[Rfam]
RNA sequence: AUCGAGAAACAACCUGGAUGGAGGCGGGGGACCCACCGGUCCACCGAACACAAGGGACCUGGGGCCGUUUCCGGCUCCUAGGGGUGAAGCCGUCCUCGUUUCGACGAUGCCGGCCGGGCGACCUCUCCAGCCCGAACCCGACAGCUGACCUCGCGGGCGCUUCAGAGAGGACCA
Numbered sequence: 001a002u003c004g005a006g007a008a009a010c011a012a013c014c015u016g017g018a019u020g021g022a023g024g025c026g027g028g029g030g031a032c033c034c035a036c037c038g039g040u041c042c043a044c045c046g047a048a049c050a051c052a053a054g055g056g057a058c059c060u061g062g063g064g065c066c067g068u069u070u071c072c073g074g075c076u077c078c079u080a081g082g083g084g085u086g087a088a089g090c091c092g093u094c095c096u097c098g099u100u101u102c103g104a105c106g107a108u109g110c111c112g113g114c115c116g117g118g119c120g121a122c123c124u125c126u127c128c129a130g131c132c133c134g135a136a137c138c139c140g141a142c143a144g145c146u147g148a149c150c151u152c153g154c155g156g157g158c159g160c161u162u163c164a165g166a167g168a169g170g171a172c173c174a
Base pairs, nucleotide, nucleotide: 002022003021024154025153026152027151028150029149034081082139083138084137090113091112092111116133117132118131119130